Nucleotides: 084
Base pairs, nucleotide, nucleotide: 006079007078008077009076010075011074012073013072020031021030022029023028033064034063035062036060037059040058041057042056
Number, partner (000 for none) and nucleotide at each position: 001000g002000u003000g004000a005000g006079g007078g008077a009076u010075g011074c012073g013072g014000g015000a016000g017000a018000g019000a020031u021030c022029u023028g024000g025000u026000u027000u028023c029022a030021g031020g032000c033064g034063c035062c036060g037059a038000a039000g040058g041057a042056g043000c044000a045000a046000a047000g048000g049000c050000a051000a052000u053000a054000a055000a056042c057041u058040c059037u060036c061000a062035g063034g064033c065000a066000a067000a068000a069000g070000g071000a072013c073012c074011g075010u076009a077008u078007u079006c080000u081000a082000a083000u084000g

Glycine riboswitch aptamer: an 84-nucleotide RNA from Pelosinus fermentans. Its family is annotated with glycine biosynthetic process in the Gene Ontology. The pairing is the family consensus, mapped onto this sequence.